[Rfam]
RNA: Plant signal recognition particle RNA
Organism: Hevea brasiliensis
RNA sequence: GCUGAGCUCAGUUGCGUGGGCUUGUAACCCAAGCGGGAGCAUCAAGGUGAUGGAACGUCGUUCUAGCUCAGAUAGCGGAUUCGGUUUGGCUAAUUUCUGGCUCGCCCGCUCCAAGCUGGGAGUUGCACCAUGGGUCUGAGGCGAAGGCUUGGGUCCGCUGGUUCUUAGAGCAGAGGGUAAUGCGUGAGGCUGGCUUCACAGAGCAGCGACUACCUCUCGCUCCUGGCAGUGGAAGGAUUACAAGUCGGUGCCACCCGGGUCCGUAUGGCUAGAUGGGCUGUGCUAACUGGACCAUCACUUUU
Numbered sequence: 001g002c003u004g005a006g007c008u009c010a011g012u013u014g015c016g017u018g019g020g021c022u023u024g025u026a027a028c029c030c031a032a033g034c035g036g037g038a039g040c041a042u043c044a045a046g047g048u049g050a051u052g053g054a055a056c057g058u059c060g061u062u063c064u065a066g067c068u069c070a071g072a073u074a075g076c077g078g079a080u081u082c083g084g085u086u087u088g089g090c091u092a093a094u095u096u097c098u099g100g101c102u103c104g105c106c107c108g109c110u111c112c113a114a115g116c117u118g119g120g121a122g123u124u125g126c127a128c129c130a131u132g133g134g135u136c137u138g139a140g141g142c143g144a145a146g147g148c149u150u151g152g153g154u155c156c157g158c159u160g161g162u163u164c165u166u167a168g169a170g171c172a173g174a175g176g177g178u179a180a181u182g183c184g185u186g187a188g189g190c191u192g193g194c195u196u197c198a199c200a201g202a203g204c205a206g207c208g209a210c211u212a213c214c215u216c217u218c219g220c221u222c223c224u225g226g227c228a229g230u231g232g233a234a235g236g237a238u239u240a241c242a243a244g245u246c247g248g249u250g251c252c253a254c255c256c257g258g259g260u261c262c263g264u265a266u267g268g269c270u271a272g273a274u275g276g277g278c279u280g281u282g283c284u285a286a287c288u289g290g291a292c293c294a295u296c297a298c299u300u301u302u
Stems, first nucleotide, its partner, number of pairs: 001040003004023007028037003044301010056289002058286001060284001061282001063280001065279006073271004077262008087253003091250002097248006104241001106236002110233004115227009125164001127162004133156002136153002139150004165170001172217005183208003190201003